[Rfam]
RNA sequence: GCCCUGUCAUCGUCUGGACUGGCCGCCGAGCGCCCGCAGCGUAUUCGGCUGCAGCCGGGUAUCCCCGGCGAAGGCGCUCCCCGUCGAGGCAUUGGCCCCAGGCUUCUCAGAGCCCAUACGGGAACUUACUAAAC
Numbered sequence: 001g002c003c004c005u006g007u008c009a010u011c012g013u014c015u016g017g018a019c020u021g022g023c024c025g026c027c028g029a030g031c032g033c034c035c036g037c038a039g040c041g042u043a044u045u046c047g048g049c050u051g052c053a054g055c056c057g058g059g060u061a062u063c064c065c066c067g068g069c070g071a072a073g074g075c076g077c078u079c080c081c082c083g084u085c086g087a088g089g090c091a092u093u094g095g096c097c098c099c100a101g102g103c104u105u106c107u108c109a110g111a112g113c114c115c116a117u118a119c120g121g122g123a124a125c126u127u128a129c130u131a132a133a134c
Stems, first nucleotide, its partner, number of pairs: 001024001003022002006019003028079006036052005054069004080122005086099001088097003101114004

Description
This 134-nucleotide RNA sequence belongs to the Rfam family "xerDC RNA". Pairs were carried over by alignment from the consensus structure, which is taken from published work.